[Rfam]
RNA sequence: CUGGAUACGGGAGACGCAGACGCGUCGGGACCGUUUCGGUCACUCAAUGCCCGACGCCGAGUCAAUGGUGAGACCGGCCCGUGAAUGA
Numbered sequence: 001c002u003g004g005a006u007a008c009g010g011g012a013g014a015c016g017c018a019g020a021c022g023c024g025u026c027g028g029g030a031c032c033g034u035u036u037c038g039g040u041c042a043c044u045c046a047a048u049g050c051c052c053g054a055c056g057c058c059g060a061g062u063c064a065a066u067g068g069u070g071a072g073a074c075c076g077g078c079c080c081g082u083g084a085a086u087g088a
Base pairs, nucleotide, nucleotide: 002087003086006083007082008081009080010079011078013063014062015061022057023056024055025054026053027052028051029050038075039074040071041070042069043068044067
c-di-GMP-II-GAG riboswitch aptamer: an 88-nucleotide RNA sequence. The sequence is in the family's curated seed alignment. Rfam links the family to the GO terms regulation of gene expression and cyclic-di-GMP binding.